The family of this 325-nucleotide sequence from Struthidea cinerea is "7SK RNA". The organism belongs to Struthidea, within Eukaryota. The match comes from Rfam's covariance-model search (172 bits). By type it is a non-coding RNA gene. Pairs were carried over by alignment from the consensus structure, which is taken from published work.
RNA sequence: GGAUGUGAGGACAACCUGGCUGUGAGAUCUGAUAUGCCAUUGAUCGCACAGCUUGGUUUGACUGGUCUGGCUGGUUUAGGCGGGUGUCCCCUUUCUUCCUCAGCAUUCCAUGUGUCGUCCUCCUGGAGCUGUGUGCUUGGUUAAUGAGGACAGCCUCCCCAGCAGACAUGGUAUUGUUCACUGGUCAGGGGUGUGUGGUAGCUGUGCUCCCCUGCUGGAAGCUCUAAGUGAGCUCAAGGUCCAUUUGUAGAAGACUGUAGGGUAGUCAAACAUCCAGUACUAAAGGUAUAUCCAAAUGAGAAGCUCCAUGCAGCAGUCUUCCAGU
Number, nucleotide and partner (000 for none) at each position: 001g109002g108003a107004u000005g000006u102007g101008a100009g099010g098011a097012c000013a094014a093015c000016c000017u000018g091019g090020c000021u000022g000023u000024g088025a087026g000027a085028u084029c083030u082031g081032a000033u079034a000035u074036g000037c070038c069039a068040u000041u000042g067043a066044u065045c064046g062047c000048a000049c000050a000051g000052c000053u000054u000055g000056g000057u000058u000059u000060g000061a000062c046063u000064g045065g044066u043067c042068u039069g038070g037071c000072u000073g000074g035075u000076u000077u000078a000079g033080g000081c031082g030083g029084g028085u027086g000087u025088c024089c000090c019091c018092u000093u014094u013095c000096u000097u011098c010099c009100u008101c007102a006103g000104c000105a000106u000107u003108c002109c001110a000111u000112g000113u000114g000115u000116c000117g172118u171119c000120c000121u166122c165123c140124u139125g138126g137127a000128g136129c135130u000131g000132u000133g000134u000135g129136c128137u126138u125139g124140g123141u162142u161143a000144a000145u000146g000147a000148g158149g157150a156151c000152a000153g000154c000155c000156u150157c149158c148159c000160c000161a142162g141163c000164a000165g122166a121167c000168a000169u000170g000171g118172u117173a000174u000175u000176g000177u000178u000179c000180a000181c000182u000183g000184g000185u000186c000187a000188g000189g000190g000191g000192u000193g000194u000195g000196u000197g000198g000199u000200a000201g271202c000203u269204g000205u000206g000207c265208u264209c000210c262211c261212c260213u259214g258215c257216u000217g000218g000219a000220a000221g000222c253223u252224c000225u250226a000227a000228g248229u247230g246231a245232g244233c000234u000235c000236a000237a000238g000239g000240u000241c000242c000243a000244u232245u231246u230247g229248u228249a000250g225251a000252a223253g222254a000255c000256u000257g215258u214259a213260g212261g211262g210263u000264a208265g207266u000267c000268a000269a203270a000271c201272a000273u000274c000275c000276a000277g000278u000279a000280c000281u000282a000283a000284a000285g000286g000287u000288a000289u000290a000291u000292c000293c000294a000295a000296a000297u000298g000299a000300g322301a000302a320303g317304c316305u315306c000307c313308a000309u000310g000311c000312a000313g307314c000315a305316g304317u303318c000319u000320u302321c000322c300323a000324g000325u000